[Rfam]
RNA sequence: CCCACCGUUUCGGGAACCCUGGUACAGGCAGGCCAGGGAUUCCCUCUUUAACAGCCGGGAUUCGCAGCGCCCAGCGCGACGCGUCCCGAACCGUUCAGGGAGCUUUGGUACAGGCAGGCCGGAGAUUCCCUCUUUUAUUCCUCACGGAGAUUGAUCGCCAAUCUCCAGCGCCCAUCGACCUUGGCUCCGGCCC
Numbered sequence: 001c002c003c004a005c006c007g008u009u010u011c012g013g014g015a016a017c018c019c020u021g022g023u024a025c026a027g028g029c030a031g032g033c034c035a036g037g038g039a040u041u042c043c044c045u046c047u048u049u050a051a052c053a054g055c056c057g058g059g060a061u062u063c064g065c066a067g068c069g070c071c072c073a074g075c076g077c078g079a080c081g082c083g084u085c086c087c088g089a090a091c092c093g094u095u096c097a098g099g100g101a102g103c104u105u106u107g108g109u110a111c112a113g114g115c116a117g118g119c120c121g122g123a124g125a126u127u128c129c130c131u132c133u134u135u136u137a138u139u140c141c142u143c144a145c146g147g148a149g150a151u152u153g154a155u156c157g158c159c160a161a162u163c164u165c166c167a168g169c170g171c172c173c174a175u176c177g178a179c180c181u182u183g184g185c186u187c188c189g190g191c192c193c
Base pairs, nucleotide, nucleotide: 012044013043014042015041016040017038018037019036020035021034022033023032057086058085059084063078064077065076067075068074098130099129100128101127102126104123105122106121107120108119109118143170145168146166147165150162151161152160153159
Dot-bracket structure: ...........((((((((((((........))))))).)))))............(((...(((.((.....))))).....)))...........(((((.((((((........))))))..)))))............(.(((..((((.....))))..)).).).......................
Overview: Nitrogen regulated small RNA: a 193-nucleotide sequence from Pseudomonas asplenii. A search with the family's covariance model found it, with a score of 91 bits.